[Rfam]
RNA: Glycine riboswitch aptamer
RNA sequence: GCAGUCGACGCGAGAGAGUUCAUCCUGGCUCCGGCCAGAGGAUGGCGCCGAAGGGGCAACUCCCCGGAACCUCUCAGGCACCCGGACCGCGUAUCGACC
Numbered sequence: 001g002c003a004g005u006c007g008a009c010g011c012g013a014g015a016g017a018g019u020u021c022a023u024c025c026u027g028g029c030u031c032c033g034g035c036c037a038g039a040g041g042a043u044g045g046c047g048c049c050g051a052a053g054g055g056g057c058a059a060c061u062c063c064c065c066g067g068a069a070c071c072u073c074u075c076a077g078g079c080a081c082c083c084g085g086a087c088c089g090c091g092u093a094u095c096g097a098c099c
Base pairs, nucleotide, nucleotide: 008092009091010090011089012088020045021044022043023042024041025040026039047079048078049077050075051074054073055072056071060066